[Rfam]
The family of this 124-nucleotide RNA from [Anoxybacillus] calidus is "PyrR binding site".
Rfam 15.1 lists 1,498 matches to the family in 930 species.
RNA sequence: AGUCCCUUUUAAAUGCAGUCCCGUGAGGCUGUCAAAGGGGAACAGGAAAUUAGUCUAACUCUAUUUUCAAUAGGCUAAAUCUGUACCUCUUUGCACCCUUAGCGGGCAAAGAGGUUUUUUUAUG
Numbered sequence: 001a002g003u004c005c006c007u008u009u010u011a012a013a014u015g016c017a018g019u020c021c022c023g024u025g026a027g028g029c030u031g032u033c034a035a036a037g038g039g040g041a042a043c044a045g046g047a048a049a050u051u052a053g054u055c056u057a058a059c060u061c062u063a064u065u066u067u068c069a070a071u072a073g074g075c076u077a078a079a080u081c082u083g084u085a086c087c088u089c090u091u092u093g094c095a096c097c098c099u100u101a102g103c104g105g106g107c108a109a110a111g112a113g114g115u116u117u118u119u120u121u122a123u124g
Stems, first nucleotide, its partner, number of pairs: 003040007015032006050078008058067001083117001085115010
Dot-bracket structure: ..(((((((.....((((((......)))))).))))))).........(((((((((........)...))))))))....(.((((((((((...........)))))))))).).......

Taxonomically the source falls in Paranoxybacillus (Bacteria, Bacillati, Bacillota, Bacilli). From the family's description: This family represents the PyrR binding site and terminator structure. This RNA structure is found upstream of a variety of genes involved in pyrimidine biosynthesis and transport. The family's consensus secondary structure is taken from published work.